c-di-AMP riboswitch aptamer (ydaO/yuaA leader): a 206-nucleotide RNA from Intrasporangium calvum.

RNA sequence: GUCCUGCCAACGCCUUGAGUCCCGUUUGACCCGCAUGGCAGGAGCGGGGGAACCACCGUUCCUCCGAGCGUCGUGGAGCCGGAUCGUUCCGGCUGCGCGCCGCUCUUGGGGUGUAGCACCUCGACGACGGCCUCCGGGCCGGAGAAGAGAGCCGGGCAACCUUUCGCCCGAACCCGACAGCUAACCUCGUAGGCGCGAGAGGUUCU
Numbered sequence: 001g002u003c004c005u006g007c008c009a010a011c012g013c014c015u016u017g018a019g020u021c022c023c024g025u026u027u028g029a030c031c032c033g034c035a036u037g038g039c040a041g042g043a044g045c046g047g048g049g050g051a052a053c054c055a056c057c058g059u060u061c062c063u064c065c066g067a068g069c070g071u072c073g074u075g076g077a078g079c080c081g082g083a084u085c086g087u088u089c090c091g092g093c094u095g096c097g098c099g100c101c102g103c104u105c106u107u108g109g110g111g112u113g114u115a116g117c118a119c120c121u122c123g124a125c126g127a128c129g130g131c132c133u134c135c136g137g138g139c140c141g142g143a144g145a146a147g148a149g150a151g152c153c154g155g156g157c158a159a160c161c162u163u164u165c166g167c168c169c170g171a172a173c174c175c176g177a178c179a180g181c182u183a184a185c186c187u188c189g190u191a192g193g194c195g196c197g198a199g200a201g202g203u204u205c206u
Stems, first nucleotide, its partner, number of pairs: 005195004013042002044190006054108002109175003117151001119149001154169004
Dot-bracket structure: ....((((....((..........................)).((((((....((...................................................))(((.....(.(.............................).)..((((........))))...))).........)))))).))))...........
The source organism's lineage runs through Bacteria, Bacillati, Actinomycetota, Intrasporangiaceae and Intrasporangium calvum.